About this RNA: Shown here is a 73-nucleotide RNA from Alligator mississippiensis, a member of the family "Mammalian CPEB3 ribozyme". NCBI's taxonomy places the organism under Eukaryota, Vertebrata, Euteleostomi, Amniota, Alligator.

RNA sequence: UGCGAGUUUAAGGCCGUAGCAGAAGUGCUCACAGUGUGGCCUGUUAGAUUCACACGAAACUGCAAAUUCUGCU
Numbered sequence: 001u002g003c004g005a006g007u008u009u010a011a012g013g014c015c016g017u018a019g020c021a022g023a024a025g026u027g028c029u030c031a032c033a034g035u036g037u038g039g040c041c042u043g044u045u046a047g048a049u050u051c052a053c054a055c056g057a058a059a060c061u062g063c064a065a066a067u068u069c070u071g072c073u
Stems, first nucleotide, its partner, number of pairs: 012041004018073007025037003045062003049058003